[Rfam]
RNA sequence: CUGUGCAGCCGGGGUGUUAGCGGUACCUUGUACCUGCAAUCCGCUAUAGCAGGGGUGAUAUUGCGCAGAGGGCGAAAGUUUGUAAAGCUGCCCCCGAUAAGUGAUGUUGAUGCCUGGGUCUUACGCGACGGGAAUCUGUGAACUGUGUCAGGUCGGGAACGAAGCAGCACUAAGCAGAACCUCCCGGGUGCCGUGAGGGUGCCUGAGCUGAGUUAACUGUCGGGGUAACGUUUAUGAACCUGGUUCGAAGCGCAAUGCACAU
Dot-bracket structure: .(((((((((((((((((...))))))))...(((((...........))))))))....((((((...((((..(.((((((((...((..((((((..(((((......((.((((((((((((..(((((.(((((.....((((....(((....)))....))))...)))))...))))).)...))))))...))))).))...))).)).)))))).))....)))))))).).))))...)))))))))))).
Numbered sequence: 001c002u003g004u005g006c007a008g009c010c011g012g013g014g015u016g017u018u019a020g021c022g023g024u025a026c027c028u029u030g031u032a033c034c035u036g037c038a039a040u041c042c043g044c045u046a047u048a049g050c051a052g053g054g055g056u057g058a059u060a061u062u063g064c065g066c067a068g069a070g071g072g073c074g075a076a077a078g079u080u081u082g083u084a085a086a087g088c089u090g091c092c093c094c095c096g097a098u099a100a101g102u103g104a105u106g107u108u109g110a111u112g113c114c115u116g117g118g119u120c121u122u123a124c125g126c127g128a129c130g131g132g133a134a135u136c137u138g139u140g141a142a143c144u145g146u147g148u149c150a151g152g153u154c155g156g157g158a159a160c161g162a163a164g165c166a167g168c169a170c171u172a173a174g175c176a177g178a179a180c181c182u183c184c185c186g187g188g189u190g191c192c193g194u195g196a197g198g199g200u201g202c203c204u205g206a207g208c209u210g211a212g213u214u215a216a217c218u219g220u221c222g223g224g225g226u227a228a229c230g231u232u233u234a235u236g237a238a239c240c241u242g243g244u245u246c247g248a249a250g251c252g253c254a255a256u257g258c259a260c261a262u
Stems, first nucleotide, its partner, number of pairs: 002261006008056003011029008033053005061255006070246004076241001078239008089227002093224006101217002103214003112208002115205005120197006126188001129186005135178005145170004153162003